The record is a 132-nucleotide RNA sequence from Climacteris rufus, which matches "Small nucleolar RNA SNORA69" in Rfam. Rfam links the family to the GO terms nucleolus and RNA processing. A search with the family's covariance model found it, with a score of 65 bits. From the family's description: U69 is a member of the H/ACA class of small nucleolar RNAs (snoRNAs) which act as guides in the the modification of uridines to pseudouridines. Rfam 15.1 lists 808 matches to the family in 584 species. Pairs were carried over by alignment from the consensus structure, which was predicted with PFOLD. It is annotated as an H/ACA-box small nucleolar RNA.

RNA sequence: AAAGCAGGCUGCAAUUGCAGUGCUUCCUGCUGUGGGAGCUCUGCCAUUUUCCUGCUGAGAGCAACUCUGUUAGCGCUGUCUGCGGUUUCACCCACGCCGUGGUGAAGGCGCUUGUUCUUGACAUGGACAGGU
Numbered sequence: 001a002a003a004g005c006a007g008g009c010u011g012c013a014a015u016u017g018c019a020g021u022g023c024u025u026c027c028u029g030c031u032g033u034g035g036g037a038g039c040u041c042u043g044c045c046a047u048u049u050u051c052c053u054g055c056u057g058a059g060a061g062c063a064a065c066u067c068u069g070u071u072a073g074c075g076c077u078g079u080c081u082g083c084g085g086u087u088u089c090a091c092c093c094a095c096g097c098c099g100u101g102g103u104g105a106a107g108g109c110g111c112u113u114g115u116u117c118u119u120g121a122c123a124u125g126g127a128c129a130g131g132u
Stems, first nucleotide, its partner, number of pairs: 003056006018043003022039005065126002068123006075116001083110002086107007